[Rfam]
RNA sequence: GCCACAGCUCGGUUAAGAGAGCCAUCUGUUGACAGUUUGCCUUUGAAAUUACUGUCAUGGAGUUGCUCUCUUAACAGUGCCUGUG
Number, nucleotide and partner (000 for none) at each position: 001g000002c000003c000004a000005c000006a000007g000008c000009u000010c000011g000012g000013u000014u073015a072016a071017g070018a069019g000020a067021g066022c065023c000024a000025u061026c060027u059028g058029u000030u000031g056032a055033c054034a000035g052036u051037u000038u000039g000040c000041c000042u000043u000044u000045g000046a000047a000048a000049u000050u000051a036052c035053u000054g033055u032056c031057a000058u028059g027060g026061a025062g000063u000064u000065g022066c021067u020068c000069u018070c017071u016072u015073a014074a000075c000076a000077g000078u000079g000080c000081c000082u000083g000084u000085g000
RNA: mir-46/mir-47/mir-281 microRNA precursor family
Organism: Panagrellus redivivus